Rfam assigns this 79-nucleotide RNA from Clarias magur to the family "mir-103/107 microRNA precursor family". The organism belongs to Clarias, within Eukaryota.
RNA sequence: CUGCGCUUUGAGCCUCUUUACAAUGCUGCCUUGUGGCGUCGGAAAUCAAGCAGCAUUGUACAGGGCUAUGAGAGCACAG
Dot-bracket structure: .............((((.((((((((((.((((.............)))))))))))))).))))..............

Overview
Rfam's curators write: This family consists of the mammalian microRNA (miRNA) precursors mir-103 and mir107. Animal miRNAs are transcribed as ~70nt precursors and subsequently processed by the Dicer enzyme to give a ~22nt product. The literature on the family includes a 2002 paper in Genes Dev by Mourelatos et al., "miRNPs: a novel class of ribonucleoproteins containing numerous microRNAs".